[Rfam]
RNA sequence: CUGCAGCCAAUUAAGCUGACCAGGUUUCUUUCCGCGUGGGAGCCUGGUGUGUAGUGACUGUAAACAGCAGUCUUCUUGGUUAGUGUAUGCAACCUGUUGCAUGUAUGGGUUGCCCAAAGGAACCUUGGAGACAGUU
Dot-bracket structure: .((((.............((((..((((..........))))..)))).))))........................(((.........((((((...........)))))).........)))............
Shown here is a 136-nucleotide RNA sequence from Nannospalax galili, a member of the family "Small nucleolar RNA SNORA70". Pairs were carried over by alignment from the consensus structure, which was predicted with PFOLD. The family's RNA type in Rfam is H/ACA-box small nucleolar RNA. Its family is annotated with nucleolus and RNA processing in the Gene Ontology. Rfam 15.1 lists 5,173 matches to the family in 383 species. The source organism's lineage runs through Eukaryota, Euteleostomi, Theria, Spalacidae and Nannospalax. A search with the family's covariance model found it, with a score of 129 bits.